[Rfam]
RNA sequence: CCUGUUGUGCAACCAACAGUAGCCUAGGGGUAGUGCGUCACCGGUAACGGUGGGGUGCGAAGCUUCCUGACAAUGUACUCCCCGCUAGGGGCCGAUGUGACCGCGAGGUCGCCCGGCGAUUUCACCAGUAGCAGGUGAAUGAGAGG
Numbered sequence: 001c002c003u004g005u006u007g008u009g010c011a012a013c014c015a016a017c018a019g020u021a022g023c024c025u026a027g028g029g030g031u032a033g034u035g036c037g038u039c040a041c042c043g044g045u046a047a048c049g050g051u052g053g054g055g056u057g058c059g060a061a062g063c064u065u066c067c068u069g070a071c072a073a074u075g076u077a078c079u080c081c082c083c084g085c086u087a088g089g090g091g092c093c094g095a096u097g098u099g100a101c102c103g104c105g106a107g108g109u110c111g112c113c114c115g116g117c118g119a120u121u122u123c124a125c126c127a128g129u130a131g132c133a134g135g136u137g138a139a140u141g142a143g144a145g146g
Stems, first nucleotide, its partner, number of pairs: 002019006027068004033058004038053006081090003091117004101108002121139006
The family of this 146-nucleotide RNA sequence from Aeromonas simiae is "Group II catalytic intron D1-D4-7".
The organism belongs to Aeromonas, within Bacteria.
About the family: Group II introns are found in rRNA, tRNA and mRNA of organelles in fungi, plants and protists, and also in mRNA in bacteria.
The pairing is the family consensus, mapped onto this sequence.
Its family is annotated with Group II intron splicing in the Gene Ontology.
The match comes from Rfam's covariance-model search (112 bits).